[Rfam]
RNA sequence: AUGAAGAUAACGGGAGAGUGAUCACUGAUCCACCGAAGAAGUUACUCUUUCAGGUAAAGGGACCGUUAUUGGACG
Numbered sequence: 001a002u003g004a005a006g007a008u009a010a011c012g013g014g015a016g017a018g019u020g021a022u023c024a025c026u027g028a029u030c031c032a033c034c035g036a037a038g039a040a041g042u043u044a045c046u047c048u049u050u051c052a053g054g055u056a057a058a059g060g061g062a063c064c065g066u067u068a069u070u071g072g073a074c075g
Stems, first nucleotide, its partner, number of pairs: 006070008020030004032055003035051002039049003

The family of this 75-nucleotide RNA sequence from Crassaminicella thermophila is "Glycine riboswitch aptamer". Rfam links the family to the GO term glycine biosynthetic process. Rfam's curators write: This family represents the bacterial glycine riboswitch. It scores 53 bits against the family's covariance model.